[Rfam]
The family of this 146-nucleotide sequence from Delphinapterus leucas is "Small nucleolar RNA SNORA79". By type it is an H/ACA-box small nucleolar RNA. Its family is annotated with RNA processing and nucleolus in the Gene Ontology. About the family: ACA65 (SNORA79) is a member of the H/ACA class of snoRNAs that guide the sites of modification of uridines to pseudouridines. NCBI's taxonomy places the organism under Eukaryota, Deuterostomia, Craniata, Eutheria, Delphinapterus. For this family Rfam cites "A computational screen for mammalian pseudouridylation guide H/ACA RNAs" (Schattner et al., RNA, 2006).
RNA sequence: UGAUGGCUGUUCCUCUCACUACUUUACAUCUUGGGUGGUGGGAUUUUAGUCCAUCAUAUAGCAAGCUGGUCUGUUUUCACUCAGAGCACCAUGCGGAUGGAUUGUCUGUCCGAUAGUGACUCCUGAUUUUUGCAGAUCGAACAAUU
Numbered sequence: 001u002g003a004u005g006g007c008u009g010u011u012c013c014u015c016u017c018a019c020u021a022c023u024u025u026a027c028a029u030c031u032u033g034g035g036u037g038g039u040g041g042g043a044u045u046u047u048a049g050u051c052c053a054u055c056a057u058a059u060a061g062c063a064a065g066c067u068g069g070u071c072u073g074u075u076u077u078c079a080c081u082c083a084g085a086g087c088a089c090c091a092u093g094c095g096g097a098u099g100g101a102u103u104g105u106c107u108g109u110c111c112g113a114u115a116g117u118g119a120c121u122c123c124u125g126a127u128u129u130u131u132g133c134a135g136a137u138c139g140a141a142c143a144a145u146u
Stems, first nucleotide, its partner, number of pairs: 001056006008049001014043005020037004068138005081126004085121002087118003095111005